[Rfam]
RNA: Lysine riboswitch aptamer
Organism: Halalkalibacter oceani
RNA sequence: AGUGAGGGUAGAGGCGCAAAUGCCAUAAGUAAGCUUGUCGAGGAGUAUGAGCUCUGAAGAAGCAAGUCGAAAGGGGAAUUUGCCGAAGUUAACGGAAGCUCAUAGUCCGUUGGCUGGGACUGUAUUGAAUAAAUACAGGACUGUCAUAUAGCGUUUGCUAUAUGGAGGGCUAUCUCACAC
Numbered sequence: 001a002g003u004g005a006g007g008g009u010a011g012a013g014g015c016g017c018a019a020a021u022g023c024c025a026u027a028a029g030u031a032a033g034c035u036u037g038u039c040g041a042g043g044a045g046u047a048u049g050a051g052c053u054c055u056g057a058a059g060a061a062g063c064a065a066g067u068c069g070a071a072a073g074g075g076g077a078a079u080u081u082g083c084c085g086a087a088g089u090u091a092a093c094g095g096a097a098g099c100u101c102a103u104a105g106u107c108c109g110u111u112g113g114c115u116g117g118g119a120c121u122g123u124a125u126u127g128a129a130u131a132a133a134u135a136c137a138g139g140a141c142u143g144u145c146a147u148a149u150a151g152c153g154u155u156u157g158c159u160a161u162a163u164g165g166a167g168g169g170c171u172a173u174c175u176c177a178c179a180c
Stems, first nucleotide, its partner, number of pairs: 006175006016083006023076002033067006087115010116142002120138007144165007